[Rfam]
RNA sequence: GGAUGUUUGAGAGGGCCUGCCUUCAGUACGAGAGGACCGAGGUGGACGGACCUCUGGUGUACCGGUUGUCGCGCCAGCGGCAUGCGCCGGGUAGCCACGUCCGGCAGGGAUAACCGCUGAAAGCAUCUAAGCGGGAAGCCUGCCUCAAGAUGAGACAUCCCGUCCCCCACGAGGGGACUGAAGGAACCAGGGAGACUACCUGGUCGAUAGGCCGGAGGUGUACGCAUGGCAACAUGUUCAGCCGACCGGUACUAAUCAGCCGUGAG
Numbered sequence: 001g002g003a004u005g006u007u008u009g010a011g012a013g014g015g016c017c018u019g020c021c022u023u024c025a026g027u028a029c030g031a032g033a034g035g036a037c038c039g040a041g042g043u044g045g046a047c048g049g050a051c052c053u054c055u056g057g058u059g060u061a062c063c064g065g066u067u068g069u070c071g072c073g074c075c076a077g078c079g080g081c082a083u084g085c086g087c088c089g090g091g092u093a094g095c096c097a098c099g100u101c102c103g104g105c106a107g108g109g110a111u112a113a114c115c116g117c118u119g120a121a122a123g124c125a126u127c128u129a130a131g132c133g134g135g136a137a138g139c140c141u142g143c144c145u146c147a148a149g150a151u152g153a154g155a156c157a158u159c160c161c162g163u164c165c166c167c168c169a170c171g172a173g174g175g176g177a178c179u180g181a182a183g184g185a186a187c188c189a190g191g192g193a194g195a196c197u198a199c200c201u202g203g204u205c206g207a208u209a210g211g212c213c214g215g216a217g218g219u220g221u222a223c224g225c226a227u228g229g230c231a232a233c234a235u236g237u238u239c240a241g242c243c244g245a246c247c248g249g250u251a252c253u254a255a256u257c258a259g260c261c262g263u264g265a266g
Stems, first nucleotide, its partner, number of pairs: 001160008011146004017045007047103005055097003062090005067082006107141003114134005163177005180263001183261002187203005208254003211250005217243002224237005
Dot-bracket structure: ((((((((..((((..(((((((...............))))))).(((((...(((....(((((((((((....))))))...)))))....))).)))))...(((....(((((...........)))))....))).))))......))))))))..(((((.....)))))..(..((..(((((.......)))))....((((((((.((.....(((((....)))))....))..))))).))).....)).)...
This 266-nucleotide part of an RNA from Parasphaerochaeta coccoides belongs to the Rfam family "Bacterial large subunit ribosomal RNA". It is one of the family's seed sequences. Its Rfam clan is "LSU clan". Taxonomically the source falls in Parasphaerochaeta coccoides (Bacteria, Pseudomonadati, Spirochaetales, Parasphaerochaeta).